[Rfam]
RNA: Small nucleolar RNA SNORA81
Organism: Myotis lucifugus
RNA sequence: ACCUUCUUGUAUAAGCACUGUGCUAAAAUUGCAGAAACUAGGAUCACAUCUUGGUUUUUGUAAUAAUGCUAGCAGAGUACACACAAGAAGAAAAGUAACUGCACUAGAUGAUAAAGACUGGGGUGGACCUCUUUCUUAAUGUCCAGUGUCCUUUGUCUUAAAAUUUGGUGCAUCAUGU
Numbered sequence: 001a002c003c004u005u006c007u008u009g010u011a012u013a014a015g016c017a018c019u020g021u022g023c024u025a026a027a028a029u030u031g032c033a034g035a036a037a038c039u040a041g042g043a044u045c046a047c048a049u050c051u052u053g054g055u056u057u058u059u060g061u062a063a064u065a066a067u068g069c070u071a072g073c074a075g076a077g078u079a080c081a082c083a084c085a086a087g088a089a090g091a092a093a094a095g096u097a098a099c100u101g102c103a104c105u106a107g108a109u110g111a112u113a114a115a116g117a118c119u120g121g122g123g124u125g126g127a128c129c130u131c132u133u134u135c136u137u138a139a140u141g142u143c144c145a146g147u148g149u150c151c152u153u154u155g156u157c158u159u160a161a162a163a164u165u166u167g168g169u170g171c172a173u174c175a176u177g178u
Stems, first nucleotide, its partner, number of pairs: 018077002021074005028067004034058002037055008100172009120149001122147001124145004